[Rfam]
RNA sequence: UAGUGCCAAGAGCAAACCUGCCUAAAGGCAGGGACGCAAAGCCACAGGAUCUAAGGUGCUGAUAAAAGCGCUAAGACAGCCUGGCUGCCGGA
Numbered sequence: 001u002a003g004u005g006c007c008a009a010g011a012g013c014a015a016a017c018c019u020g021c022c023u024a025a026a027g028g029c030a031g032g033g034a035c036g037c038a039a040a041g042c043c044a045c046a047g048g049a050u051c052u053a054a055g056g057u058g059c060u061g062a063u064a065a066a067a068g069c070g071c072u073a074a075g076a077c078a079g080c081c082u083g084g085c086u087g088c089c090g091g092a
Stems, first nucleotide, its partner, number of pairs: 012037002017032006040086004046082003050076002056071004
Shown here is a 92-nucleotide RNA from Sinanaerobacter chloroacetimidivorans, a member of the family "c-di-GMP-I riboswitch aptamer". The source organism's lineage runs through Bacteria, Bacillota, Clostridia, Peptostreptococcales and Sinanaerobacter. The base pairs follow the family's consensus structure, which is taken from published work.